[Rfam]
RNA sequence: UCACUCUGGAGAGCGGCGCCAACGGGGGCGCCCACCGAAGGGGCAAGCCCCGUCGCCGCAGGCGGCAGGGUGAAUCUCUCAGGUAUCAGCGACAGAGCGGGA
Numbered sequence: 001u002c003a004c005u006c007u008g009g010a011g012a013g014c015g016g017c018g019c020c021a022a023c024g025g026g027g028g029c030g031c032c033c034a035c036c037g038a039a040g041g042g043g044c045a046a047g048c049c050c051c052g053u054c055g056c057c058g059c060a061g062g063c064g065g066c067a068g069g070g071u072g073a074a075u076c077u078c079u080c081a082g083g084u085a086u087c088a089g090c091g092a093c094a095g096a097g098c099g100g101g102a
Base pairs, nucleotide, nucleotide: 001100002099004097005096006095007094008093015032016031017030018029034084035083036082037080038079041078042077043076047071048070049069050068

About this RNA
The record is a 102-nucleotide RNA from Serinibacter salmoneus, which matches "Glycine riboswitch aptamer" in Rfam. The source organism's lineage runs through Bacteria, Bacillati, Actinomycetota, Actinomycetes and Serinibacter.